[Rfam]
RNA: Glycine riboswitch aptamer
RNA sequence: AUGAGAACUAGAGGAGAGACUACUAGUAUACAGAAAGUACAAAUCACAAAAAUGACGUGUAUUUUUUGUUAAAAGUUUUACCAGUAGCGCCGAAGGAGCAAGCGAAAAAUAUCGUGAAUCUCUCAGGCAAAAAGACUCUUGUUUGACG
Numbered sequence: 001a002u003g004a005g006a007a008c009u010a011g012a013g014g015a016g017a018g019a020c021u022a023c024u025a026g027u028a029u030a031c032a033g034a035a036a037g038u039a040c041a042a043a044u045c046a047c048a049a050a051a052a053u054g055a056c057g058u059g060u061a062u063u064u065u066u067u068g069u070u071a072a073a074a075g076u077u078u079u080a081c082c083a084g085u086a087g088c089g090c091c092g093a094a095g096g097a098g099c100a101a102g103c104g105a106a107a108a109a110u111a112u113c114g115u116g117a118a119u120c121u122c123u124c125a126g127g128c129a130a131a132a133a134g135a136c137u138c139u140u141g142u143u144u145g146a147c148g
Stems, first nucleotide, its partner, number of pairs: 006143003010139004020087004089128003092124002096122003102115002